[Rfam]
RNA sequence: GAAGGAUUGGACUUCCGCAGACGCCCGUCAGGGGGAGUCUGCAAACCACCUUAUGCUGCUGGAGGAGUAAUUGUCUCUGGUGGUGAACGAUAAGGAAAAACGGGAACAGAGAUUCCUGUAGGU
Numbered sequence: 001g002a003a004g005g006a007u008u009g010g011a012c013u014u015c016c017g018c019a020g021a022c023g024c025c026c027g028u029c030a031g032g033g034g035g036a037g038u039c040u041g042c043a044a045a046c047c048a049c050c051u052u053a054u055g056c057u058g059c060u061g062g063a064g065g066a067g068u069a070a071u072u073g074u075c076u077c078u079g080g081u082g083g084u085g086a087a088c089g090a091u092a093a094g095g096a097a098a099a100a101c102g103g104g105a106a107c108a109g110a111g112a113u114u115c116c117u118g119u120a121g122g123u
Base pairs, nucleotide, nucleotide: 001015002014003013004012017042018041019040020039021038022037024035025034026033047122049095050094051093052092053091054090055084056083058081059080060079062077063076064075065074100119101118102117103116104115105114
Rfam assigns this 123-nucleotide RNA from Flammeovirgaceae bacterium 311 to the family "Group II catalytic intron D1-D4-2". Group II introns are found in rRNA, tRNA and mRNA of organelles in fungi, plants and protists, and also in mRNA in bacteria. Taxonomically the source falls in Flammeovirgaceae (Bacteria, Pseudomonadati, Bacteroidota, Cytophagia).